[Rfam]
RNA sequence: GGUCGUUGCAAGUUCCCGAUAGGCUCUAGUAAUUGCUAGAGGUGCCUUGUAACCGAAUAAUAAUUAGGGGGAAUAGAAAAAUG
Number, nucleotide and partner (000 for none) at each position: 001g000002g000003u000004c000005g000006u000007u000008g000009c000010a000011a000012g000013u073014u072015c071016c070017c069018g000019a000020u000021a047022g046023g045024c000025u040026c039027u038028a037029g036030u000031a000032a000033u000034u000035g000036c029037u028038a027039g026040a025041g000042g000043u000044g000045c023046c022047u021048u000049g000050u000051a000052a000053c068054c067055g000056a000057a000058u000059a000060a000061u000062a000063a000064u000065u000066a000067g054068g053069g017070g016071g015072a014073a013074u000075a000076g000077a000078a000079a000080a000081a000082u000083g000

About this RNA:
Shown here is an 83-nucleotide RNA from Enterococcus pallens, a member of the family "SAM-III riboswitch aptamer (SMK box)". On this family, see Fuchs et al., Proc Natl Acad Sci U S A 2007: "S-adenosylmethionine directly inhibits binding of 30S ribosomal subunits to the SMK box translational riboswitch RNA". The match comes from Rfam's covariance-model search (72 bits).